The family of this 72-nucleotide RNA from Nicotiana attenuata is "MIR6151 microRNA precursor family".
A search with the family's covariance model found it, with a score of 77 bits.
NCBI's taxonomy places the organism under Eukaryota, Tracheophyta, asterids, lamiids, Nicotiana.
[Rfam]
RNA sequence: AUUCGCUGGAUGAGUGUAAAGCAUUGGAUUGAGUUUAUUCAAUCUGAGCCCUACAUUCAUCAAGGGAUUCGU
Number, nucleotide and partner (000 for none) at each position: 001a000002u000003u000004c066005g000006c064007u063008g000009g061010a060011u059012g058013a057014g056015u055016g054017u053018a052019a000020a000021g049022c048023a000024u047025u046026g045027g044028a043029u042030u041031g040032a039033g000034u000035u000036u000037a000038u000039u032040c031041a030042a029043u028044c027045u026046g025047a024048g022049c021050c000051c000052u018053a017054c016055a015056u014057u013058c012059a011060u010061c009062a000063a007064g006065g000066g004067a000068u000069u000070c000071g000072u000